[Rfam]
TPP riboswitch aptamer (THI element): a 111-nucleotide sequence from Shouchella oshimensis. It scores 60 bits against the family's covariance model. Its family is annotated with thiamine pyrophosphate binding in the Gene Ontology.
RNA sequence: AGCAAAGGCUAGGGGUGCCCGAUGAAGUUGGGCUGAGAAUAAGAACGUAUUUCUUUUACUCUUUAACCUGAUCUGGAUCACACCAGCGGAGGGAAGUCGGCAUACACAGAG
Number, nucleotide and partner (000 for none) at each position: 001a000002g000003c000004a000005a000006a000007g098008g097009c096010u095011a062012g061013g060014g059015g000016u000017g033018c032019c031020c030021g029022a000023u000024g000025a000026a000027g000028u000029u021030g020031g019032g018033c017034u000035g000036a000037g000038a000039a000040u000041a055042a054043g053044a052045a000046c000047g000048u000049a000050u000051u000052u044053c043054u042055u041056u000057u000058a000059c014060u013061c012062u011063u000064u000065a000066a000067c092068c091069u090070g000071a000072u000073c086074u085075g084076g083077a000078u000079c000080a000081c000082a000083c076084c075085a074086g073087c000088g000089g000090a069091g068092g067093g000094a000095a010096g009097u008098c007099g000100g000101c000102a000103u000104a000105c000106a000107c000108a000109g000110a000111g000